[Rfam]
RNA sequence: CAUUUACACUAGGGGUGCUAGUAAGCUGAGAGAAGGAUUGGAAUCCUUUAACCCUUUGAACCUGACCUGGCCAAUACCAGCGUAGGGAAGUGAAGGCAUUGUUUC
Numbered sequence: 001c002a003u004u005u006a007c008a009c010u011a012g013g014g015g016u017g018c019u020a021g022u023a024a025g026c027u028g029a030g031a032g033a034a035g036g037a038u039u040g041g042a043a044u045c046c047u048u049u050a051a052c053c054c055u056u057u058g059a060a061c062c063u064g065a066c067c068u069g070g071c072c073a074a075u076a077c078c079a080g081c082g083u084a085g086g087g088a089a090g091u092g093a094a095g096g097c098a099u100u101g102u103u104u105c
Base pairs, nucleotide, nucleotide: 007092008091009090010089011055012054013053014052017026018025019024033048034047035046036045037044061086062085063084064083067080068079069078070077
The family of this 105-nucleotide sequence from Pueribacillus theae is "TPP riboswitch aptamer (THI element)". NCBI's taxonomy places the organism under Bacteria, Bacillota, Bacilli, Bacillaceae, Pueribacillus. A search with the family's covariance model found it, with a score of 77 bits. The base pairs follow the family's consensus structure, which is taken from published work.